[Rfam]
RNA: MIR6217 microRNA precursor family
Organism: Miscanthus lutarioriparius
RNA sequence: UGGCUAUAAAAAUAACUCAUUCUGUAGCCACUUUGAGUUACGAUAAUUACUAUGUUAAUUUACGAUAUUAUAGUAACUUCUUAAUGUUAUGGUAAAUAUCUCCAUAUGUUAUAGUAACUCAACUAUCGUAAAUAUGUGUUGACAUUAUCGUAAAUUAGUAUAUAAAAUUAUCGUAAAUGAAAGUGGCUACAGAAUAAUUUAUUUUGUAGCUG
Numbered sequence: 001u002g003g004c005u006a007u008a009a010a011a012a013u014a015a016c017u018c019a020u021u022c023u024g025u026a027g028c029c030a031c032u033u034u035g036a037g038u039u040a041c042g043a044u045a046a047u048u049a050c051u052a053u054g055u056u057a058a059u060u061u062a063c064g065a066u067a068u069u070a071u072a073g074u075a076a077c078u079u080c081u082u083a084a085u086g087u088u089a090u091g092g093u094a095a096a097u098a099u100c101u102c103c104a105u106a107u108g109u110u111a112u113a114g115u116a117a118c119u120c121a122a123c124u125a126u127c128g129u130a131a132a133u134a135u136g137u138g139u140u141g142a143c144a145u146u147a148u149c150g151u152a153a154a155u156u157a158g159u160a161u162a163u164a165a166a167a168u169u170a171u172c173g174u175a176a177a178u179g180a181a182a183g184u185g186g187c188u189a190c191a192g193a194a195u196a197a198u199u200u201a202u203u204u205u206g207u208a209g210c211u212g
Stems, first nucleotide, its partner, number of pairs: 001212009011203005017197001019195016038176011051162013067148002070145002075139001081131003084126003087122002091101002